[Rfam]
RNA: Small nucleolar SNORD12/SNORD106
RNA sequence: CUGUGGUUACAUGAUGACUAAAACUUUUUUCCCCAACUGAUCGACAAUGCUGAUCAGGAAUACAUUUAAGCCAAAACUUGUCUGAUUUCCAUCAG
Numbered sequence: 001c002u003g004u005g006g007u008u009a010c011a012u013g014a015u016g017a018c019u020a021a022a023a024c025u026u027u028u029u030u031c032c033c034c035a036a037c038u039g040a041u042c043g044a045c046a047a048u049g050c051u052g053a054u055c056a057g058g059a060a061u062a063c064a065u066u067u068a069a070g071c072c073a074a075a076a077c078u079u080g081u082c083u084g085a086u087u088u089c090c091a092u093c094a095g
Stems, first nucleotide, its partner, number of pairs: 001095003004091003009086001